[Rfam]
RNA sequence: GUGGGCUACGGCGACAUGUGCCCCACAACGGUGGGCGGGAAGCUGGUGGGCUCCAUGUGCGCCAUCGCUGGCGUGCUGACCAUUUCUCUGCCCGUUCCCGUCAUUGUGUCCAAC
Numbered sequence: 001g002u003g004g005g006c007u008a009c010g011g012c013g014a015c016a017u018g019u020g021c022c023c024c025a026c027a028a029c030g031g032u033g034g035g036c037g038g039g040a041a042g043c044u045g046g047u048g049g050g051c052u053c054c055a056u057g058u059g060c061g062c063c064a065u066c067g068c069u070g071g072c073g074u075g076c077u078g079a080c081c082a083u084u085u086c087u088c089u090g091c092c093c094g095u096u097c098c099c100g101u102c103a104u105u106g107u108g109u110c111c112a113a114c
Stems, first nucleotide, its partner, number of pairs: 001114002004111002007108005013102003018097001020095002037077002040074001049063003
Dot-bracket structure: ((.((.(((((.(((..(.((...............((.(........(((.........)))..........).))................)).)..))).))))).)).))
This 114-nucleotide RNA from Gouania willdenowi belongs to the Rfam family "Potassium channel RNA editing signal". Pairs were carried over by alignment from the consensus structure, which is taken from published work. It scores 107 bits against the family's covariance model.